[Rfam]
RNA sequence: CCCCUUGCAGCCGCCCCGCCCCGCCCCUAUAUUGAGCCUGUUCGGGUUCGCCCGGACUAUGGACAUAAACGCGCACGGAAUAACCGGAUCGGACCCGGGGGCGGUACCCGGCGGCUCCACCAUCCAUCCCUCGUUGGGGGCGAAUGGGGCCGAAACAGGAUCGACGAACGUCUAAAGGUGUUUGCUUUGUCUCGGUGAGCUACCACCGUUAUCGGUGCAAAUUGUACAGUUGCCAACGACAACCGUGCUCCGGUGGCUCUGGCUGCGUAAGCAGCUCGGGUAACCGAAACUUAAGUCCUUACGCUUAGCCGCCUAAGGCGGGGCCCGCAGGAGCCUGGCAACAGAAUCCUGCACC
Number, nucleotide and partner (000 for none) at each position: 001c000002c000003c000004c000005u000006u000007g000008c000009a000010g000011c000012c000013g000014c000015c000016c000017c000018g000019c000020c000021c000022c000023g000024c000025c000026c000027c000028u000029a000030u000031a000032u000033u000034g000035a000036g000037c000038c000039u000040g057041u056042u055043c054044g053045g052046g051047u000048u000049c000050g000051c046052c045053c044054g043055g042056a041057c040058u000059a000060u000061g192062g191063a190064c189065a188066u000067a000068a000069a000070c000071g185072c184073g181074c180075a179076c178077g000078g000079a000080a000081u000082a000083a000084c000085c170086g169087g000088a000089u167090c166091g165092g000093a000094c000095c111096c110097g109098g108099g107100g000101g000102c000103g000104g000105u000106a000107c099108c098109c097110g096111g095112c152113g151114g150115c149116u148117c147118c146119a000120c000121c000122a000123u000124c000125c000126a000127u000128c000129c000130c000131u000132c000133g000134u000135u000136g000137g000138g000139g000140g000141c000142g000143a000144a000145u000146g118147g117148g116149g115150c114151c113152g112153a000154a000155a000156c000157a000158g000159g000160a000161u000162c000163g000164a000165c091166g090167a089168a000169c086170g085171u000172c000173u000174a000175a000176a000177g000178g076179u075180g074181u073182u000183u000184g072185c071186u000187u000188u065189g064190u063191c062192u061193c208194g207195g206196u205197g000198a000199g218200c217201u000202a216203c215204c214205a196206c195207c194208g193209u000210u000211a000212u000213c000214g204215g203216u202217g200218c199219a000220a000221a000222u000223u000224g000225u000226a000227c000228a000229g000230u000231u000232g000233c000234c000235a000236a000237c000238g000239a000240c000241a000242a000243c000244c000245g000246u000247g000248c000249u000250c000251c000252g000253g000254u000255g000256g000257c000258u000259c000260u000261g000262g000263c000264u000265g000266c000267g000268u000269a000270a000271g000272c000273a000274g000275c000276u000277c000278g000279g000280g000281u000282a000283a000284c000285c000286g000287a000288a000289a000290c000291u000292u000293a000294a000295g000296u000297c000298c000299u000300u000301a000302c000303g000304c000305u000306u000307a000308g000309c000310c000311g000312c000313c000314u000315a000316a000317g000318g000319c000320g000321g336322g335323g334324c333325c000326c000327g352328c351329a350330g349331g348332a347333g324334c323335c322336u321337g000338g000339c000340a000341a000342c000343a000344g000345a000346a000347u332348c331349c330350u329351g328352c327353a000354c000355c000